[Rfam]
RNA sequence: GAUAAAGCGGGUGAGAGGCCCGCUCGCCGAAAGCCCAAGGUUUCCUGAGUAAAGCUAAUCUGCUCAGGGUUAGUCGAUCCCUAAGGCGAGGCCGAGAGGCGUAGUCGAUGGAAAACAGGUUAAUAUUCCUGUACCACCUCGUUGUCGUUUGAGAGAAGGGGGGACGCAGGAGGGCAGGUCAUCCGUCUGUUGGAAUAGGCGGUUCAAGCCGGUAGGCUUAAAUCCCAGGCAAAUCCGGGAUUUUUUAAGGCCGAGAAGUGAUGAGGAGGGUCUUUGACCCAUAAACUGACUGCACCCAUGCUGCCAAGAAAAGCCUCUAUCGAGAUAACAGGUGAUCGUACCGUAAACCGACACAGGUAGGCAAGGAGAGUAUCCUAAGGCGCU
Number, nucleotide and partner (000 for none) at each position: 001g000002a000003u000004a000005a000006a024007g023008c022009g021010g020011g019012u000013g000014a000015g000016a000017g000018g000019c011020c010021c009022g008023c007024u006025c382026g381027c380028c379029g000030a000031a000032a000033g362034c361035c360036c000037a000038a000039g342040g341041u000042u000043u000044c068045c067046u066047g065048a064049g063050u000051a000052a000053a061054g060055c000056u000057a000058a000059u000060c054061u053062g000063c049064u048065c047066a046067g045068g044069g000070u000071u000072a000073g000074u000075c338076g337077a336078u335079c000080c111081c110082u000083a000084a000085g106086g105087c104088g000089a102090g000091g100092c099093c098094g000095a000096g000097a000098g093099g092100c091101g000102u089103a000104g087105u086106c085107g000108a000109u000110g081111g080112a000113a000114a000115a132116c131117a130118g129119g128120u000121u000122a000123a000124u000125a000126u000127u000128c119129c118130u117131g116132u115133a000134c000135c334136a333137c332138c331139u330140c000141g000142u328143u327144g326145u325146c000147g000148u000149u000150u000151g000152a000153g321154a320155g000156a000157a318158g317159g316160g315161g314162g000163g000164a000165c000166g304167c303168a302169g301170g000171a000172g297173g296174g295175c000176a000177g291178g290179u289180c288181a287182u000183c202184c201185g200186u199187c198188u000189g000190u000191u000192g000193g000194a000195a000196u000197a000198g187199g186200c185201g184202g183203u000204u264205c263206a000207a000208g259209c258210c000211g000212g000213u000214a000215g252216g251217c250218u000219u000220a243221a242222a241223u240224c239225c238226c237227a000228g236229g235230c000231a000232a000233a000234u000235c229236c228237g226238g225239g224240a223241u222242u221243u220244u000245u000246u000247a000248a000249g000250g217251c216252c215253g000254a000255g000256a000257a000258g209259u208260g000261a000262u000263g205264a204265g000266g282267a000268g280269g279270g278271u277272c276273u000274u000275u000276g272277a271278c270279c269280c268281a000282u266283a000284a000285a000286c000287u181288g180289a179290c178291u177292g000293c000294a000295c174296c173297c172298a000299u000300g000301c169302u168303g167304c166305c000306a000307a000308g000309a000310a000311a000312a000313g000314c161315c160316u159317c158318u157319a000320u154321c153322g000323a000324g000325a145326u144327a143328a142329c000330a139331g138332g137333u136334g135335a078336u077337c076338g075339u000340a000341c040342c039343g000344u000345a000346a000347a000348c357349c356350g000351a000352c000353a000354c000355a000356g349357g348358u000359a000360g035361g034362c033363a000364a376365g375366g374367a373368g000369a000370g000371u000372a000373u367374c366375c365376u364377a000378a000379g028380g027381c026382g025383c000384u000